Description:
This 37-nucleotide RNA belongs to the Rfam family "DUF805b RNA".
[Rfam]
RNA sequence: AAGGAGGAUGCCGAAAAUCCUGAAAACAGAGUAGGCU
Numbered sequence: 001a002a003g004g005a006g007g008a009u010g011c012c013g014a015a016a017a018u019c020c021u022g023a024a025a026a027c028a029g030a031g032u033a034g035g036c037u
Base pairs, nucleotide, nucleotide: 002021003020004019005018010036011035012034
The family's RNA type in Rfam is cis-regulatory element.